[Rfam]
Nucleotides: 059
Stems, first nucleotide, its partner, number of pairs: 010025004016050006032040003
Number, partner (000 for none) and nucleotide at each position: 001000c002000a003000a004000u005000u006000c007000g008000a009000a010025g011024g012023g013022g014000a015000u016050g017049g018048a019047g020046u021045c022013c023012c024011c025010c026000u027000g028000a029000a030000c031000c032040g033039c034038c035000c036000u037000u038034g039033g040032c041000u042000g043000a044000u045021g046020a047019c048018u049017c050016c051000u052000g053000c054000c055000g056000u057000g058000u059000c
Shown here is a 59-nucleotide RNA from Methyloceanibacter methanicus, a member of the family "Fluoride riboswitch aptamer (crcB RNA motif)". The organism belongs to Methyloceanibacter, within Bacteria. Its family is annotated with positive regulation of gene expression and response to fluoride in the Gene Ontology.